[Rfam]
RNA: mir-1285 microRNA precursor family
RNA sequence: AUGGGGUCUUGCUAUGUUGUCCAGGCUCAUCUCAAAAUCCUGGCCUGGACAACAUAGCAAGACCCCAU
Numbered sequence: 001a002u003g004g005g006g007u008c009u010u011g012c013u014a015u016g017u018u019g020u021c022c023a024g025g026c027u028c029a030u031c032u033c034a035a036a037a038u039c040c041u042g043g044c045c046u047g048g049a050c051a052a053c054a055u056a057g058c059a060a061g062a063c064c065c066c067a068u
Base pairs, nucleotide, nucleotide: 007062008061009060010059011058012057013056014055019050020049021048022047023046024045025044032043033042034041